Notes: Shown here is a 115-nucleotide RNA sequence from Nibricoccus aquaticus, a member of the family "TPP riboswitch aptamer (THI element)". Gene Ontology term of the family: thiamine pyrophosphate binding.
[Rfam]
RNA sequence: ACUUGCCUGUAGGGGUGUCCUCCGUCGGAGGGCUGAGAUGAUCGCGCGAUCGGCGAUCGGACCCUUCGAACCUGAACGGAUCAUUCCGGCGAAGGAAAACAGCAGGCGGUACCUU
Numbered sequence: 001a002c003u004u005g006c007c008u009g010u011a012g013g014g015g016u017g018u019c020c021u022c023c024g025u026c027g028g029a030g031g032g033c034u035g036a037g038a039u040g041a042u043c044g045c046g047c048g049a050u051c052g053g054c055g056a057u058c059g060g061a062c063c064c065u066u067c068g069a070a071c072c073u074g075a076a077c078g079g080a081u082c083a084u085u086c087c088g089g090c091g092a093a094g095g096a097a098a099a100c101a102g103c104a105g106g107c108g109g110u111a112c113c114u115u
Stems, first nucleotide, its partner, number of pairs: 007102004011065004016059001017033005040058005071095003077088003
The source organism's lineage runs through Bacteria, Verrucomicrobiota, Opitutales, Opitutaceae and Nibricoccus. The base pairs follow the family's consensus structure, which is taken from published work.